[Rfam]
RNA sequence: GGUCCGAUGCCACGUUGUCAAUAGCGAAUUAGCAGUGACCGGCGAUGCUAUGAUUAGACCAAAAUUGAUUCCAUGUUUUGCUUGUCGAUAGGAAUCUGUAGACUGAUUUUUAUUCCAUUCAUCUGCGGAGCCGUUUUCUGCGAUCACAUUU
Numbered sequence: 001g002g003u004c005c006g007a008u009g010c011c012a013c014g015u016u017g018u019c020a021a022u023a024g025c026g027a028a029u030u031a032g033c034a035g036u037g038a039c040c041g042g043c044g045a046u047g048c049u050a051u052g053a054u055u056a057g058a059c060c061a062a063a064a065u066u067g068a069u070u071c072c073a074u075g076u077u078u079u080g081c082u083u084g085u086c087g088a089u090a091g092g093a094a095u096c097u098g099u100a101g102a103c104u105g106a107u108u109u110u111u112a113u114u115c116c117a118u119u120c121a122u123c124u125g126c127g128g129a130g131c132c133g134u135u136u137u138c139u140g141c142g143a144u145c146a147c148a149u150u151u
Base pairs, nucleotide, nucleotide: 002059003058004057006055007054008053009051013047014046015045016044017043018042022038024033025032078143079142080141081140091132092131096128097127098126100124101123102122
The record is a 151-nucleotide RNA from Olea europaea, which matches "Small nucleolar RNA snoR2/U65" in Rfam. Rfam links the family to the GO terms RNA processing and nucleolus. Its Rfam clan is "SNORA65 clan". The match comes from Rfam's covariance-model search (104 bits). Rfam classes the family as an H/ACA-box small nucleolar RNA.